About this RNA: The family of this 185-nucleotide RNA from Zizania palustris is "Small nucleolar RNA Z112".
RNA sequence: AUCCCAUUGAGGAGUCCAAGACCGAUAGGAAGUGCCGUAUGACACUGUAAACAGCAGCUGCUUCUCUCCGUUGCAAGUGUACAUCCUUCGAUCAUAACCUUUGUGGUUUGGUCUGGGAUGGAAUUUCCAUUUGCAUCGGUUUGAUUCAUCUGUGUGCGUGAUUUUAAAGUUGGUCUCUGAGGGAU
Numbered sequence: 001a002u003c004c005c006a007u008u009g010a011g012g013a014g015u016c017c018a019a020g021a022c023c024g025a026u027a028g029g030a031a032g033u034g035c036c037g038u039a040u041g042a043c044a045c046u047g048u049a050a051a052c053a054g055c056a057g058c059u060g061c062u063u064c065u066c067u068c069c070g071u072u073g074c075a076a077g078u079g080u081a082c083a084u085c086c087u088u089c090g091a092u093c094a095u096a097a098c099c100u101u102u103g104u105g106g107u108u109u110g111g112u113c114u115g116g117g118a119u120g121g122a123a124u125u126u127c128c129a130u131u132u133g134c135a136u137c138g139g140u141u142u143g144a145u146u147c148a149u150c151u152g153u154g155u156g157c158g159u160g161a162u163u164u165u166a167a168a169g170u171u172g173g174u175c176u177c178u179g180a181g182g183g184a185u
Stems, first nucleotide, its partner, number of pairs: 001185005072135008080122001082120005090113005096108004
The literature on the family includes a 2002 paper in Nucleic Acids Res by Liang et al., "A novel gene organization: intronic snoRNA gene clusters from Oryza sativa". The base pairs follow the family's consensus structure, which was predicted with PFOLD. By type it is a C/D-box small nucleolar RNA. Its Rfam clan is "SNORD49 clan".